[Rfam]
RNA sequence: GAGGUGUGAUGAGUUUUACAUUGGUCCGUGUUUCUGAAUCACAGUGACCGACAACUUUUACCAAUUUCUGAUCUC
Number, nucleotide and partner (000 for none) at each position: 001g075002a074003g073004g072005u000006g000007u000008g000009a000010u000011g000012a000013g000014u000015u000016u000017u000018a000019c000020a000021u000022u000023g000024g000025u000026c000027c000028g000029u000030g000031u000032u000033u000034c000035u000036g000037a000038a000039u000040c000041a000042c000043a000044g000045u000046g000047a000048c000049c000050g000051a000052c000053a000054a000055c000056u000057u000058u000059u000060a000061c000062c000063a000064a000065u000066u000067u000068c000069u000070g000071a000072u004073c003074u002075c001